Shown here is a 41-nucleotide RNA, a member of the family "L31-Actinobacteria ribosomal protein leader". The base pairs follow the family's consensus structure, which is taken from published work.
[Rfam]
RNA sequence: AUGGUUCCGGUUCACCCGCCGUCCGGCGGGACCCGGCGACC
Numbered sequence: 001a002u003g004g005u006u007c008c009g010g011u012u013c014a015c016c017c018g019c020c021g022u023c024c025g026g027c028g029g030g031a032c033c034c035g036g037c038g039a040c041c
Stems, first nucleotide, its partner, number of pairs: 003041003007036004015030006